Annotation
The family of this 45-nucleotide RNA from Marinilabilia rubra is "Acido-Lenti-1 RNA". By type it is a small RNA. The base pairs follow the family's consensus structure, which is taken from published work.
RNA sequence: CCCGGGGCGUUGCCCCGGGCUAUUUUAAGUCAGGCUUUCAGCCUG
Numbered sequence: 001c002c003c004g005g006g007g008c009g010u011u012g013c014c015c016c017g018g019g020c021u022a023u024u025u026u027a028a029g030u031c032a033g034g035c036u037u038u039c040a041g042c043c044u045g
Stems, first nucleotide, its partner, number of pairs: 001019008032044005